The family of this 114-nucleotide sequence from Elachura formosa is "Small nucleolar RNA SNORA13".

[Rfam]
RNA sequence: GGCCUUUGUGUUGUCCAUUCAUGUGGUGUCAAAAAAAGCAGACAGAAAUUCUUGCUCAAAAUGGUGUAGGGAGCUGGUUAUGUACCUUCUUCCUCUAUUUUUGCAAGGAUAAAA
Dot-bracket structure: .((.(((.((.((((((....)).)))).))..))).))...........((((..((((.....(((((((...(........).....)).))))).)))))))).......
Rfam describes the family as follows. ACA13 is a member of the H/ACA class of snoRNA that guide the sites of modification of uridines to pseudouridines.
Its family is annotated with RNA processing and nucleolus in the Gene Ontology.
The base pairs follow the family's consensus structure, which was predicted with CMfinder.
The match comes from Rfam's covariance-model search (56 bits).
Rfam classes the family as an H/ACA-box small nucleolar RNA.